[Rfam]
RNA sequence: UUUAAUACUUGUUAGGCGAGGCUCCUAAACAAACAUAGGCUAUUGCGCAGAAACGUCGAAAGACGCCAAUGUGUAAAACAGGAAUUGUCGAAUUAAGGCUCUUCAUAAGAUAGCUAAGAGAAAUCUUUACGUUGUUUAGUGUCAAAACUCACACGAUGAGAUAGUUGU
Number, nucleotide and partner (000 for none) at each position: 001u000002u000003u000004a000005a000006u163007a162008c000009u160010u159011g154012u153013u096014a000015g149016g148017c000018g000019a000020g143021g142022c141023u000024c000025c139026u138027a137028a136029a135030c134031a133032a132033a000034c000035a000036u000037a000038g000039g114040c113041u112042a111043u110044u000045g074046c073047g072048c071049a070050g000051a000052a000053a000054c065055g064056u063057c062058g000059a000060a000061a000062g057063a056064c055065g054066c000067c000068a000069a000070u049071g048072u047073g046074u045075a000076a000077a000078a000079c000080a000081g000082g104083a103084a102085u000086u000087g099088u098089c097090g000091a000092a000093u000094u000095a000096a013097g089098g088099c087100u000101c000102u084103u083104c082105a000106u000107a000108a000109g000110a043111u042112a041113g040114c039115u000116a127117a126118g125119a000120g000121a000122a000123a000124u000125c118126u117127u116128u000129a000130c000131g000132u032133u031134g030135u029136u028137u027138a026139g025140u000141g022142u021143c020144a000145a000146a000147a000148c016149u015150c000151a000152c000153a012154c011155g000156a000157u000158g000159a010160g009161a000162u007163a006164g000165u000166u000167g000168u000
The family of this 168-nucleotide RNA sequence from Enterococcus hirae is "M-box riboswitch aptamer (ykoK leader)". The literature on the family includes a 2004 paper in Proc Natl Acad Sci U S A by Barrick et al., "New RNA motifs suggest an expanded scope for riboswitches in bacterial genetic control". Rfam describes the family as follows. M-box riboswitch, also know as ykoK leader is described as a metaloregulatory RNA that sense divalent metals and function as a genetic control element of genes related to divalent metal transport in bacteria. It was first reported upstream of the B.subtilis ykoK gene and genes with related functions in other bacteria. NCBI's taxonomy places the organism under Bacteria, Bacillati, Lactobacillales, Enterococcaceae, Enterococcus hirae.